[Rfam]
RNA sequence: GGUAACUGCCUCCGGAGGGAGGUGUUUUGCCGUAGAUGAUUUUUGCAUUUCAGUUAUCGCCCCACUUUUUGUGGGACUGGUAAUCGUACUAGUCGAUCAUUGGUUAGAUGACCGGCGGUAACUAGCAGUUACCACUGACCCACACACCUAAAACGUCGCUUUAGGUGAAAAA
Numbered sequence: 001g002g003u004a005a006c007u008g009c010c011u012c013c014g015g016a017g018g019g020a021g022g023u024g025u026u027u028u029g030c031c032g033u034a035g036a037u038g039a040u041u042u043u044u045g046c047a048u049u050u051c052a053g054u055u056a057u058c059g060c061c062c063c064a065c066u067u068u069u070u071g072u073g074g075g076a077c078u079g080g081u082a083a084u085c086g087u088a089c090u091a092g093u094c095g096a097u098c099a100u101u102g103g104u105u106a107g108a109u110g111a112c113c114g115g116c117g118g119u120a121a122c123u124a125g126c127a128g129u130u131a132c133c134a135c136u137g138a139c140c141c142a143c144a145c146a147c148c149u150a151a152a153a154c155g156u157c158g159c160u161u162u163a164g165g166u167g168a169a170a171a172a
Stems, first nucleotide, its partner, number of pairs: 001133008010021004022037002025034001052123009061075005077092006093107001095105004145167007